[Rfam]
RNA sequence: GCCAGUGUCAUUUUUGUGAUGUUGCAGCUAGUAAUAUAAGCCAAGUUGCAUAGUCACAAAAGUGAUCAUUGGA
Numbered sequence: 001g002c003c004a005g006u007g008u009c010a011u012u013u014u015u016g017u018g019a020u021g022u023u024g025c026a027g028c029u030a031g032u033a034a035u036a037u038a039a040g041c042c043a044a045g046u047u048g049c050a051u052a053g054u055c056a057c058a059a060a061a062g063u064g065a066u067c068a069u070u071g072g073a
Stems, first nucleotide, its partner, number of pairs: 002072006008065013023050007
The record is a 73-nucleotide RNA sequence from Anolis carolinensis, which matches "mir-153 microRNA precursor family" in Rfam. The sequence is in the family's curated seed alignment. Its family is annotated with RISC complex and miRNA-mediated post-transcriptional gene silencing in the Gene Ontology. The base pairs follow the family's consensus structure, which was predicted with RNAalifold.